[Rfam]
RNA sequence: GCCGGCGUCUAUACGGUGCAGACGACACCGGUUCCCGUCGUCAGCGAACUGCCCGGCCGCACCAGUGCCUUCCUGGUGGCCCAGGUGCGCGCCCGCGUGGAUGGCAUCGUGCUGCGCCGGGUCUUCACCGAAGGCGAUGACGUCAAGGCCGGGCAGUUGCUGUACAAGAUCGA
Numbered sequence: 001g002c003c004g005g006c007g008u009c010u011a012u013a014c015g016g017u018g019c020a021g022a023c024g025a026c027a028c029c030g031g032u033u034c035c036c037g038u039c040g041u042c043a044g045c046g047a048a049c050u051g052c053c054c055g056g057c058c059g060c061a062c063c064a065g066u067g068c069c070u071u072c073c074u075g076g077u078g079g080c081c082c083a084g085g086u087g088c089g090c091g092c093c094c095g096c097g098u099g100g101a102u103g104g105c106a107u108c109g110u111g112c113u114g115c116g117c118c119g120g121g122u123c124u125u126c127a128c129c130g131a132a133g134g135c136g137a138u139g140a141c142g143u144c145a146a147g148g149c150c151g152g153g154c155a156g157u158u159g160c161u162g163u164a165c166a167a168g169a170u171c172g173a
Base pairs, nucleotide, nucleotide: 004053005052006051007050008047009046013041014040015039016038021034022033023031055150056149057148058147059143060142063139066136067135068134069133071131072130075093076092077091078090082089094121097118100115102114103113104112105111106110157172160168161167
RNA: Burkholderia RNA 14
Organism: Cupriavidus sp. USMAA2-4